Shown here is a 114-nucleotide RNA from Parashewanella spongiae, a member of the family "Ribosomal S15 leader". Clan: Ribosomal Protein S15 Leader clan. The match comes from Rfam's covariance-model search (98 bits). Pairs were carried over by alignment from the consensus structure, which is taken from published work. The family's RNA type in Rfam is cis-regulatory leader.

RNA sequence: CUCUUUAGCUGAGUUAGUGAUUGGCUAAAGUUAUUUUAUAUAUAUUUGGAGAUAUUCAUGUCACUAAGUGCUGAAGCGAAAGCAAAAAUCGUAGCAGAGCAUGCUCGUUUCGAA
Numbered sequence: 001c002u003c004u005u006u007a008g009c010u011g012a013g014u015u016a017g018u019g020a021u022u023g024g025c026u027a028a029a030g031u032u033a034u035u036u037u038a039u040a041u042a043u044a045u046u047u048g049g050a051g052a053u054a055u056u057c058a059u060g061u062c063a064c065u066a067a068g069u070g071c072u073g074a075a076g077c078g079a080a081a082g083c084a085a086a087a088a089u090c091g092u093a094g095c096a097g098a099g100c101a102u103g104c105u106c107g108u109u110u111c112g113a114a
Stems, first nucleotide, its partner, number of pairs: 007026006045068005051062001
NCBI's taxonomy places the organism under Bacteria, Pseudomonadati, Pseudomonadota, Shewanellaceae, Parashewanella.